This 136-nucleotide RNA from Triticum aestivum belongs to the Rfam family "Small nucleolar RNA snoR77".
Rfam classes the family as an H/ACA-box small nucleolar RNA.
The match comes from Rfam's covariance-model search (94 bits).
[Rfam]
RNA sequence: AGGCCGCCCCUUUGUCUAAUUACAAUGUCUAUGGAGGUGUUAUGUUGCUUGGAGAUUAAAUCUUCAGCUCUUCAGAUUAGCUGAGGGGGCCGCUUGCUUCCCUCUUCGAAGUUGGUCUAGUAGUCUUAAGAACAAU
Numbered sequence: 001a002g003g004c005c006g007c008c009c010c011u012u013u014g015u016c017u018a019a020u021u022a023c024a025a026u027g028u029c030u031a032u033g034g035a036g037g038u039g040u041u042a043u044g045u046u047g048c049u050u051g052g053a054g055a056u057u058a059a060a061u062c063u064u065c066a067g068c069u070c071u072u073c074a075g076a077u078u079a080g081c082u083g084a085g086g087g088g089g090c091c092g093c094u095u096g097c098u099u100c101c102c103u104c105u106u107c108g109a110a111g112u113u114g115g116u117c118u119a120g121u122a123g124u125c126u127u128a129a130g131a132a133c134a135a136u
Stems, first nucleotide, its partner, number of pairs: 002041003007037002009034002012031001014029001016027001062130003067125001069123001074118005080112003085104005

Record summary:
Rfam 15.1 lists 649 matches to the family in 221 species.